[Rfam]
RNA sequence: GGACGAACCUCUGGAGAGACUCUUAAUGAGCACCGAAGGGGAAAACUAAUCAAUGAUUAGUGAAACUCUCAGGUAAAAGGACAGAGGAUAUAUU
Dot-bracket structure: .....(.((((((......(((.....))).(((((..(((...(((((.......)))))....))))).))).......)))))).).....
Rfam assigns this 94-nucleotide RNA from Vallitalea guaymasensis to the family "Glycine riboswitch aptamer".
It scores 70 bits against the family's covariance model.